[Rfam]
RNA sequence: UUAACAGCCGUCAAAAUACACACACGUACCGACACAGCUGUCGGGGUGCCCGGGAGACCGGGUCGCCAGUUGGGGUGCGUGGAGGACUAAC
Numbered sequence: 001u002u003a004a005c006a007g008c009c010g011u012c013a014a015a016a017u018a019c020a021c022a023c024a025c026g027u028a029c030c031g032a033c034a035c036a037g038c039u040g041u042c043g044g045g046g047u048g049c050c051c052g053g054g055a056g057a058c059c060g061g062g063u064c065g066c067c068a069g070u071u072g073g074g075g076u077g078c079g080u081g082g083a084g085g086a087c088u089a090a091c
Stems, first nucleotide, its partner, number of pairs: 023081008035072006042065002048063005
The family of this 91-nucleotide RNA sequence from Sedimenticola thiotaurini is "t44 RNA". The organism belongs to Sedimenticola, within Bacteria. It scores 77 bits against the family's covariance model. The family's RNA type in Rfam is small RNA.